[Rfam]
Overview: Rfam assigns this 84-nucleotide RNA from Turnera subulata to the family "MIR473 microRNA precursor family". Lineage of the source: Eukaryota > Euphyllophyta > fabids > Malpighiales > Turnera. The family's consensus secondary structure was predicted with WAR. The match comes from Rfam's covariance-model search (58 bits). Rfam links the family to the GO terms miRNA-mediated post-transcriptional gene silencing and RISC complex.
Nucleotides: 084
Base pairs, nucleotide, nucleotide: 006077007076008075009074010073011072012071013070014069015068018064019063020062021061022060023059024058025057
Number, partner (000 for none) and nucleotide at each position: 001000a002000u003000u004000g005000c006077u007076c008075a009074c010073u011072c012071u013070c014069c015068c016000u017000c018064g019063a020062g021061g022060c023059u024058u025057c026000c027000a028000g029000c030000u031000u032000a033000u034000u035000u036000a037000g038000u039000u040000g041000c042000u043000g044000u045000g046000c047000a048000u049000c050000u051000a052000a053000a054000c055000u056000c057025g058024a059023a060022g061021u062020c063019u064018u065000u066000u067000g068015g069014g070013g071012a072011g073010a074009g075008u076007g077006a078000c079000c080000a081000a082000a083000a084000g